Rfam assigns this 81-nucleotide RNA from Caenorhabditis auriculariae to the family "Nematode snoRNA ceN22".

RNA sequence: AUUGCAAACUGCCGUUGAUGAGUCUAGUCUUAGGAAGUGCCGGCUGAGAAAUACUGAUUACAAACUAGGACGCUGAGGCAA
Numbered sequence: 001a002u003u004g005c006a007a008a009c010u011g012c013c014g015u016u017g018a019u020g021a022g023u024c025u026a027g028u029c030u031u032a033g034g035a036a037g038u039g040c041c042g043g044c045u046g047a048g049a050a051a052u053a054c055u056g057a058u059u060a061c062a063a064a065c066u067a068g069g070a071c072g073c074u075g076a077g078g079c080a081a
Base pairs, nucleotide, nucleotide: 010080011079012078013077
It scores 52 bits against the family's covariance model.
For this family Rfam cites "Systematic identification of non-coding RNA 2,2,7-trimethylguanosine cap structures in Caenorhabditis elegans" (Jia et al., BMC Mol Biol, 2007).
Rfam links the family to the GO terms RNA processing and nucleolus.
By type it is a C/D-box small nucleolar RNA.
Taxonomically the source falls in Caenorhabditis (Eukaryota, Protostomia, Ecdysozoa, Nematoda).